[Rfam]
Nucleotides: 148
Stems, first nucleotide, its partner, number of pairs: 005062007022050002026046001028044001030042002075141006081090001083088001107133005
Number, partner (000 for none) and nucleotide at each position: 001000a002000g003000u004000u005062g006061u007060g008059g009058u010057g011056g012000u013000u014000u015000u016000c017000u018000u019000u020000u021000u022050g023049g024000c025000a026046c027000u028044u029000g030042u031041g032000c033000u034000g035000a036000a037000c038000u039000u040000u041031c042030a043000a044028a045000u046026g047000g048000u049023u050022c051000c052000g053000a054000c055000u056011c057010u058009g059008c060007u061006a062005c063000a064000g065000a066000u067000a068000u069000u070000g071000g072000a073000c074000a075141g076140g077139a078138g079137u080136u081090g082000c083088c084000a085000a086000a087000g088083g089000u090081u091000u092000a093000a094000u095000g096000g097000c098000a099000a100000a101000g102000a103000g104000a105000u106000c107133u108132c109131u110130u111129u112000c113000c114000a115000g116000c117000c118000u119000u120000u121000c122000c123000u124000g125000a126000a127000u128000c129111a130110g131109a132108g133107a134000u135000u136080g137079g138078c139077u140076c141075u142000c143000a144000a145000a146000g147000a148000u

A member of the RNA family "Small nucleolar RNA SNORA12" from Ovis aries, 148 nucleotides long. Rfam 15.1 lists 571 matches to the family in 378 species. U108 belongs to the H/ACA family of snoRNAs. Gene Ontology terms of the family: nucleolus and RNA processing. On this family, see Gu et al., Nucleic Acids Res 2005: "A novel experimental approach for systematic identification of box H/ACA snoRNAs from eukaryotes". A search with the family's covariance model found it, with a score of 109 bits. By type it is an H/ACA-box small nucleolar RNA.